[Rfam]
Rfam assigns this 355-nucleotide RNA sequence from Phragmitibacter flavus to the family "transfer-messenger RNA".
Taxonomically the source falls in Phragmitibacter (Bacteria, Pseudomonadati, Verrucomicrobiota, Verrucomicrobiales).
Its family is annotated with RNA catabolic process in the Gene Ontology.

RNA sequence: GGGGGCGUUCUGGUUUCGACGGGCGAUCUGAAGUGAAGGCUGCAUGCCGCGGAUGAUUCGUUGGCCGCGUUAAAAAUCGAAUCAACAACUCUAAAUGCAAACUCUAACGAGCUCGCACUCGCUGCUUAAUUGACAGCGACAUUCCUCUGCUGAAGCCUGGUCAGUGGAGGGGUGACUACUUACAGGCUGGCCAACAGAACGGGCGACCGGUUCCAAGGCGAGAUCAACAGGACGCUGGGCGAGGGAGAUGCUGUGAAUGGCAGCUCCCGAGUCGAGAUUAAAUCAUUCACUGAGCAUGGAGACGCUUUCAUCGAUGAUGGUUCGGACAGGGGUUCAACUCCCCUCGCCUCCACCA
Number, nucleotide and partner (000 for none) at each position: 001g351002g350003g349004g348005g347006c346007g345008u000009u000010c000011u000012g000013g000014u000015u000016u000017c000018g000019a000020c324021g323022g322023g321024c320025g000026a318027u317028c316029u000030g000031a000032a000033g311034u310035g309036a308037a307038g306039g305040c304041u000042g000043c298044a297045u296046g295047c294048c069049g068050c067051g066052g065053a000054u084055g083056a082057u081058u080059c079060g000061u000062u000063g000064g000065c052066c051067g050068c049069g048070u000071u000072a000073a000074a000075a000076a000077u000078c000079g059080a058081a057082u056083c055084a054085a000086c000087a000088a000089c000090u000091c000092u000093a000094a000095a000096u000097g000098c000099a000100a000101a000102c000103u000104c000105u000106a000107a000108c000109g000110a000111g000112c000113u000114c000115g000116c000117a000118c000119u139120c138121g137122c136123u135124g134125c000126u000127u000128a000129a000130u000131u000132g000133a000134c124135a123136g122137c121138g120139a119140c174141a173142u172143u171144c170145c169146u168147c167148u166149g165150c164151u163152g162153a000154a000155g187156c186157c185158u184159g183160g000161u000162c152163a151164g150165u149166g148167g147168a146169g145170g144171g143172g142173u141174g140175a000176c000177u000178a000179c000180u000181u000182a000183c159184a158185g157186g156187c155188u000189g000190g000191c218192c217193a000194a000195c000196a000197g212198a211199a000200c000201g236202g235203g000204c000205g000206a000207c000208c000209g000210g000211u198212u197213c000214c000215a000216a000217g192218g191219c000220g000221a000222g000223a000224u000225c000226a000227a000228c000229a000230g000231g000232a000233c000234g000235c202236u201237g000238g273239g272240c271241g000242a000243g268244g267245g266246a265247g264248a000249u262250g261251c260252u000253g290254u289255g288256a287257a000258u000259g283260g251261c250262a249263g000264c247265u246266c245267c244268c243269g000270a000271g240272u239273c238274g000275a000276g000277a000278u000279u000280a000281a000282a000283u259284c000285a000286u000287u256288c255289a254290c253291u000292g000293a000294g047295c046296a045297u044298g043299g000300a000301g000302a000303c000304g040305c039306u038307u037308u036309c035310a034311u033312c000313g000314a000315u000316g028317a027318u026319g000320g024321u023322u022323c021324g020325g000326a000327c000328a344329g343330g342331g341332g340333u000334u000335c000336a000337a000338c000339u000340c332341c331342c330343c329344u328345c007346g006347c005348c004349u003350c002351c001352a000353c000354c000355a000
Pairs were carried over by alignment from the consensus structure, which is taken from published work.